A member of the RNA family "Streptomyces sRNA scr5239" from Streptomyces indicus, 155 nucleotides long. Gene Ontology terms of the family: mRNA binding and negative regulation of translation. By type it is a small RNA. NCBI's taxonomy places the organism under Bacteria, Actinomycetota, Kitasatosporales, Streptomycetaceae, Streptomyces.
[Rfam]
RNA sequence: CUUCCGCUCUUCCCGCACAGAAGAGCGGAGUGGGGCGCAGCGCUCUCUGCCCUGACUGCGCACGCGCCCCCACUCGGUCCGUGGGUCCGCACACCCGGUGGCCGAUGCAACUCCGGGCUGCGGUGCCGGGAGGGUUGAGGGUCCCUCCCAGGCGC
Numbered sequence: 001c002u003u004c005c006g007c008u009c010u011u012c013c014c015g016c017a018c019a020g021a022a023g024a025g026c027g028g029a030g031u032g033g034g035g036c037g038c039a040g041c042g043c044u045c046u047c048u049g050c051c052c053u054g055a056c057u058g059c060g061c062a063c064g065c066g067c068c069c070c071c072a073c074u075c076g077g078u079c080c081g082u083g084g085g086u087c088c089g090c091a092c093a094c095c096c097g098g099u100g101g102c103c104g105a106u107g108c109a110a111c112u113c114c115g116g117g118c119u120g121c122g123g124u125g126c127c128g129g130g131a132g133g134g135u136u137g138a139g140g141g142u143c144c145c146u147c148c149c150a151g152g153c154g155c
Base pairs, nucleotide, nucleotide: 003029004028005027006026008024009023010022011021012020032070033069034068035067036066038064040061042059043058044055045054074105075104076103077102078101079100083096084095085094110124111123112122114120115119128149129148130147131146132145133144134143